RNA sequence: CUCUUAUCAAGAGAGGCGGAGGGAAAGGCCCGAUGAAGCCCGGCAACCAGCAUGAAAAAAUGCCAGGUGCCAAUUCCUGCAGCAAAAGCUGAAAGAUGAGAG
Numbered sequence: 001c002u003c004u005u006a007u008c009a010a011g012a013g014a015g016g017c018g019g020a021g022g023g024a025a026a027g028g029c030c031c032g033a034u035g036a037a038g039c040c041c042g043g044c045a046a047c048c049a050g051c052a053u054g055a056a057a058a059a060a061u062g063c064c065a066g067g068u069g070c071c072a073a074u075u076c077c078u079g080c081a082g083c084a085a086a087a088g089c090u091g092a093a094a095g096a097u098g099a100g101a102g
Stems, first nucleotide, its partner, number of pairs: 001102008013041001015040003021031003026078003042071004047067002050063003075094001080091004

The record is a 102-nucleotide RNA from Fonticella tunisiensis, which matches "SAM riboswitch aptamer (S box leader)" in Rfam. Lineage of the source: Bacteria > Bacillati > Bacillota > Eubacteriales > Fonticella. Pairs were carried over by alignment from the consensus structure, which is taken from published work.